[Rfam]
RNA sequence: UGAAAACGUUUUAAAAUGAGUUGUUCUUAAUUUUUGGGAUAAAAAAGAGUGCCUGUUGGCCAUAUCUGGAGAGAUUCUUUUUUAUCCUAAGAAAAAUAACUUAUAGGAGGAAGAACACGA
Number, nucleotide and partner (000 for none) at each position: 001u000002g000003a000004a000005a000006a024007c023008g022009u000010u020011u019012u018013a000014a000015a000016a000017u000018g012019a011020g010021u000022u008023g007024u006025u114026c113027u112028u111029a000030a000031u000032u094033u093034u092035u089036g000037g087038g086039a085040u084041a083042a082043a081044a080045a079046a078047g077048a076049g075050u074051g000052c069053c068054u000055g066056u000057u000058g000059g000060c000061c000062a000063u000064a000065u000066c055067u000068g053069g052070a000071g000072a000073g000074a050075u049076u048077c047078u046079u045080u044081u043082u042083u041084a040085u039086c038087c037088u000089a035090a000091g000092a034093a033094a032095a000096a000097u000098a000099a000100c000101u000102u000103a000104u000105a000106g000107g000108a000109g000110g000111a028112a027113g026114a025115a000116c000117a000118c000119g000120a000
RNA: Streptococcus sRNA SSRC34